The family of this 98-nucleotide sequence from Atopobacter sp. AH10 is "TPP riboswitch aptamer (THI element)". It scores 64 bits against the family's covariance model. Vitamin B(1) in its active form thiamin pyrophosphate (TPP) is an essential coenzyme that is synthesised by coupling of pyrimidine and thiazole moieties in bacteria. The source organism's lineage runs through Bacteria, Bacillota, Bacilli, Carnobacteriaceae and Atopobacter. The base pairs follow the family's consensus structure, which is taken from published work.

RNA sequence: UCUAAAACAAAGGGGCGCCACGAGCUGAGACGUGAUCUAUCACGAACCCUUAGAACCUGUUUGUUAACACAAGCGUAGGGAUUGUUAUUUGGCAAGUU
Number, nucleotide and partner (000 for none) at each position: 001u000002c000003u000004a000005a000006a086007a085008c084009a083010a082011a050012g049013g048014g047015g000016c044017g025018c024019c000020a000021c000022g000023a000024g018025c017026u000027g000028a000029g000030a000031c000032g043033u042034g041035a040036u000037c000038u000039a000040u035041c034042a033043c032044g016045a000046a000047c014048c013049c012050u011051u000052a000053g000054a000055a000056c079057c078058u077059g076060u073061u072062u071063g070064u000065u000066a000067a000068c000069a000070c063071a062072a061073g060074c000075g000076u059077a058078g057079g056080g000081a000082u010083u009084g008085u007086u006087a000088u000089u000090u000091g000092g000093c000094a000095a000096g000097u000098u000